[Rfam]
The family of this 155-nucleotide RNA from Ralstonia pickettii is "radC RNA". The source organism's lineage runs through Bacteria, Pseudomonadota, Betaproteobacteria, Ralstonia and Ralstonia pickettii. The base pairs follow the family's consensus structure, which is taken from published work.
RNA sequence: AGGCUACGCCCAUGUCCGUCGGCGUUGCCGACAACAUGCCCAGGUAGCCCAGACCUUCAAGGCUACGGUGCGUUGCGACGCACGGUCUGAAUUUUCUCCACGACGCUCACCGCGUUUUCUUCCAUCCCCCUGGGGCAGUGACUGCCCUCGCCGGU
Numbered sequence: 001a002g003g004c005u006a007c008g009c010c011c012a013u014g015u016c017c018g019u020c021g022g023c024g025u026u027g028c029c030g031a032c033a034a035c036a037u038g039c040c041c042a043g044g045u046a047g048c049c050c051a052g053a054c055c056u057u058c059a060a061g062g063c064u065a066c067g068g069u070g071c072g073u074u075g076c077g078a079c080g081c082a083c084g085g086u087c088u089g090a091a092u093u094u095u096c097u098c099c100a101c102g103a104c105g106c107u108c109a110c111c112g113c114g115u116u117u118u119c120u121u122c123c124a125u126c127c128c129c130c131u132g133g134g135g136c137a138g139u140g141a142c143u144g145c146c147c148u149c150g151c152c153g154g155u
Stems, first nucleotide, its partner, number of pairs: 011038004015033001018032006044066006052087004068083006124155003132148007